The family of this 34-nucleotide sequence is "L31-Firmicutes ribosomal protein leader". A reference for the family is Eckert and Weinberg (2020), "Discovery of 20 novel ribosomal leader candidates in bacteria and archaea", BMC Microbiol.
RNA sequence: CUCUGGACCCGCAUGUGGUUCAGGGCAGAAAGAG
Dot-bracket structure: ((((((((.........)))))))).........

Pairs were carried over by alignment from the consensus structure, which is taken from published work.